The family of this 79-nucleotide sequence from Limosilactobacillus vaginalis is "Group II catalytic intron D1-D4-1". Rfam links the family to the GO term Group II intron splicing. The source organism's lineage runs through Bacteria, Bacilli, Lactobacillales, Limosilactobacillus and Limosilactobacillus vaginalis. Pairs were carried over by alignment from the consensus structure.
[Rfam]
RNA sequence: CAAGCGGUGCAGUGAUGUAGCGUUGAGUAAGUCAGAAGUCAGCUGAGGUCAUAGUAGUCUGGCUAUCUGGACGAAGGAC
Numbered sequence: 001c002a003a004g005c006g007g008u009g010c011a012g013u014g015a016u017g018u019a020g021c022g023u024u025g026a027g028u029a030a031g032u033c034a035g036a037a038g039u040c041a042g043c044u045g046a047g048g049u050c051a052u053a054g055u056a057g058u059c060u061g062g063c064u065a066u067c068u069g070g071a072c073g074a075a076g077g078a079c
Stems, first nucleotide, its partner, number of pairs: 001025002004023003008019004039046002048079003057072006